[Rfam]
RNA sequence: GGAAGCAAUGGCGAUGGAGCUCGCCAAAACCGCCUCUUGGGUUCAAACAGGCUAAGGUCAAGCACUGAAAGCAUUCCAGUUUGAAACAUCAAAGGCUGAUGGCUCCUGCUGUUCC
Numbered sequence: 001g002g003a004a005g006c007a008a009u010g011g012c013g014a015u016g017g018a019g020c021u022c023g024c025c026a027a028a029a030c031c032g033c034c035u036c037u038u039g040g041g042u043u044c045a046a047a048c049a050g051g052c053u054a055a056g057g058u059c060a061a062g063c064a065c066u067g068a069a070a071g072c073a074u075u076c077c078a079g080u081u082u083g084a085a086a087c088a089u090c091a092a093a094g095g096c097u098g099a100u101g102g103c104u105c106c107u108g109c110u111g112u113u114c115c
Base pairs, nucleotide, nucleotide: 010025011024012023013022016106017105018104019103020102021101032096033095034094035093
A member of the RNA family "Fluoride riboswitch aptamer (crcB RNA motif)" from Synechococcales cyanobacterium M55_K2018_004, 115 nucleotides long. Taxonomically the source falls in Synechococcales (Bacteria, Bacillati, Cyanobacteriota, Cyanophyceae). For this family Rfam cites "Widespread genetic switches and toxicity resistance proteins for fluoride" (Baker et al., Science, 2012).